[Rfam]
RNA: c-di-AMP riboswitch aptamer (ydaO/yuaA leader)
RNA sequence: AAUGAAUUUUUGCCGAAUUUCGUCUGUAGAAAACGGGGGAACCAUUCCGGGUGAAUUAUUCCCAUGCUUUGCAUUGAAGGGAAUAUAGGGAGCCUUCUACCGAACCCUUAGCUAACUCCGUAGGCAUCGAAGGGAGUAUGU
Numbered sequence: 001a002a003u004g005a006a007u008u009u010u011u012g013c014c015g016a017a018u019u020u021c022g023u024c025u026g027u028a029g030a031a032a033a034c035g036g037g038g039g040a041a042c043c044a045u046u047c048c049g050g051g052u053g054a055a056u057u058a059u060u061c062c063c064a065u066g067c068u069u070u071g072c073a074u075u076g077a078a079g080g081g082a083a084u085a086u087a088g089g090g091a092g093c094c095u096u097c098u099a100c101c102g103a104a105c106c107c108u109u110a111g112c113u114a115a116c117u118c119c120g121u122a123g124g125c126a127u128c129g130a131a132g133g134g135a136g137u138a139u140g141u
Base pairs, nucleotide, nucleotide: 011126012125013124014123018032019031020030033121034120035119036118037117038116049107050106051105057085058084059083060082061081062080063079088101089100091098